A member of the RNA family "Small nucleolar RNA SNORA4" from Crocuta crocuta, 135 nucleotides long. Gene Ontology terms of the family: RNA processing and nucleolus. About the family: ACA4 is a member of the H/ACA class of snoRNA that guide the sites of modification of uridines to pseudouridines. It scores 67 bits against the family's covariance model. Rfam 15.1 lists 290 matches to the family in 136 species. The family's consensus secondary structure was predicted with PFOLD.

RNA sequence: CUACCAAACAUUGGUUUUGAGGAGAAGAUUUUUAGCAGUCUUUUUUAGCUCAAGCUAUGUGGGAGAAUAAAAACCACACUCCACAGUGAGCUGUAUCAUUUCUAGGCAAUUCAUUACUGUUUUGUGGCCUGAAAG
Number, nucleotide and partner (000 for none) at each position: 001c000002u000003a000004c062005c061006a060007a000008a058009c000010a000011u000012u057013g056014g055015u054016u053017u052018u000019g000020a000021g050022g049023a046024g045025a044026a043027g040028a039029u038030u037031u000032u000033u000034a000035g000036c000037a030038g029039u028040c027041u000042u000043u026044u025045u024046u023047a000048g000049c022050u021051c000052a017053a016054g015055c014056u013057a012058u008059g000060u006061g005062g004063g000064a000065g000066a000067a000068u000069a000070a000071a130072a000073a000074c127075c126076a125077c124078a123079c000080u000081c000082c000083a000084c000085a115086g114087u113088g112089a111090g110091c000092u108093g107094u106095a000096u104097c000098a000099u000100u000101u000102c000103u000104a096105g000106g094107c093108a092109a000110u090111u089112c088113a087114u086115u085116a000117c000118u000119g000120u000121u000122u000123u078124g077125u076126g075127g074128c000129c000130u071131g000132a000133a000134a000135g000